[Rfam]
RNA: Guanidine-I riboswitch aptamer
RNA sequence: CGAAAUAGCUUCUAGGGUUCCGUUAUUGACAAAAAAAUAAGCCUGGACCGAGAGAAGAUGAUCCUAUUUAGGUAAGGGUCACACGGAGGGAUAAAAGCCCGGGAGAA
Numbered sequence: 001c002g003a004a005a006u007a008g009c010u011u012c013u014a015g016g017g018u019u020c021c022g023u024u025a026u027u028g029a030c031a032a033a034a035a036a037a038u039a040a041g042c043c044u045g046g047a048c049c050g051a052g053a054g055a056a057g058a059u060g061a062u063c064c065u066a067u068u069u070a071g072g073u074a075a076g077g078g079u080c081a082c083a084c085g086g087a088g089g090g091a092u093a094a095a096a097g098c099c100c101g102g103g104a105g106a107a
Base pairs, nucleotide, nucleotide: 007059009057010056011055012054015049016048020046021045022043023040024039025038026037027036060080061079062078063077064076065075082102084105088100089099090098